[Rfam]
RNA: TPP riboswitch aptamer (THI element)
Organism: Rhodococcus sp. Leaf258
RNA sequence: GAGUCGGACACGGGGUGCCGAACCGAACCGGCUGAGAACACACCCGUCGAACCUGACCAGGUCAUGCUGGCGAAGGGAUGUCGAGAUGCACACAG
Numbered sequence: 001g002a003g004u005c006g007g008a009c010a011c012g013g014g015g016u017g018c019c020g021a022a023c024c025g026a027a028c029c030g031g032c033u034g035a036g037a038a039c040a041c042a043c044c045c046g047u048c049g050a051a052c053c054u055g056a057c058c059a060g061g062u063c064a065u066g067c068u069g070g071c072g073a074a075g076g077g078a079u080g081u082c083g084a085g086a087u088g089c090a091c092a093c094a095g
Base pairs, nucleotide, nucleotide: 007082008081009080010079011046012045013044014043016040017032018031019030020029052076053075054074057070058069059068060067